[Rfam]
RNA sequence: AAUAAAGGCUUUCUCCGAACCUCAUUUCCUAAAGUAAAAACUAUGGAAUAGAGGUCUGGACUUUGUCCACGAAGUAGUAGAAGAAAUUUUAUUACUUGCUGUUUGGCGAAGGAGAUGCACGAGAAAUAGA
Number, nucleotide and partner (000 for none) at each position: 001a000002a000003u124004a000005a000006a000007g000008g000009c000010u000011u000012u115013c114014u113015c112016c111017g000018a000019a055020c054021c053022u052023c051024a000025u000026u048027u047028c046029c045030u000031a000032a000033a042034g041035u040036a000037a000038a000039a000040a035041c034042u033043a000044u000045g029046g028047a027048a026049u000050a000051g023052a022053g021054g020055u019056c000057u069058g068059g067060a066061c065062u000063u000064u000065g061066u060067c059068c058069a057070c000071g000072a097073a096074g095075u094076a093077g092078u091079a090080g089081a088082a087083g000084a000085a000086a000087u082088u081089u080090u079091a078092u077093u076094a075095c074096u073097u072098g107099c106100u000101g000102u000103u000104u000105g000106g099107c098108g000109a000110a000111g016112g015113a014114g013115a012116u000117g000118c000119a000120c000121g000122a000123g000124a003125a000126a000127u000128a000129g000130a000
RNA: Molybdenum/Tungsten riboswitch aptamer (Moco RNA motif)
Organism: Desulfitobacterium metallireducens